[Rfam]
RNA sequence: UGAUGCCAUCGCAACUGGCGUGAAGAUGGGUCACCAUCGGGGAGCGACACAGACGCAGAUUGGCCGAACGCCUGGGCCACCUGC
Numbered sequence: 001u002g003a004u005g006c007c008a009u010c011g012c013a014a015c016u017g018g019c020g021u022g023a024a025g026a027u028g029g030g031u032c033a034c035c036a037u038c039g040g041g042g043a044g045c046g047a048c049a050c051a052g053a054c055g056c057a058g059a060u061u062g063g064c065c066g067a068a069c070g071c072c073u074g075g076g077c078c079a080c081c082u083g084c
Base pairs, nucleotide, nucleotide: 004051005050009047010046011045012044015041016040017072018071019070020069021068026037027036028035029034061079062078063077064076065075
Shown here is an 84-nucleotide sequence, a member of the family "ZMP/ZTP riboswitch aptamer (pfl RNA motif)". The sequence is in the family's curated seed alignment. For this family Rfam cites "Parallel Discovery Strategies Provide a Basis for Riboswitch Ligand Design" (Tran et al., Cell Chem Biol, 2020). The family's consensus secondary structure is taken from published work. Its family is annotated with one-carbon metabolic process and regulation of purine nucleotide biosynthetic process in the Gene Ontology.